RNA sequence: GUCUUAUCCAGAGUGUUUUAGGGAACUGGCCCGGUGAGAACACAGCAACCUACUUGUAUGAGCAAGGUGCUAAUUCCAGCAGCAACAAGCUGAAGAGAUAAGGA
Numbered sequence: 001g002u003c004u005u006a007u008c009c010a011g012a013g014u015g016u017u018u019u020a021g022g023g024a025a026c027u028g029g030c031c032c033g034g035u036g037a038g039a040a041c042a043c044a045g046c047a048a049c050c051u052a053c054u055u056g057u058a059u060g061a062g063c064a065a066g067g068u069g070c071u072a073a074u075u076c077c078a079g080c081a082g083c084a085a086c087a088a089g090c091u092g093a094a095g096a097g098a099u100a101a102g103g104a
Stems, first nucleotide, its partner, number of pairs: 002103007013043005021032003026079004044071004049067002051064001053062002075096001080092004
Dot-bracket structure: .(((((((....(((((...(((..[[[[)))......)))))((((.(((.((......)).).))))))...(]]]]((((.....))))...)))))))).
Record summary:
The family of this 104-nucleotide RNA from Loigolactobacillus backii is "SAM riboswitch aptamer (S box leader)". From the family's description: The SAM riboswitch is found upstream of a number of genes which code for proteins involved in methionine or cysteine biosynthesis in Gram-positive bacteria. Lineage of the source: Bacteria > Bacillati > Bacillota > Lactobacillales > Loigolactobacillus.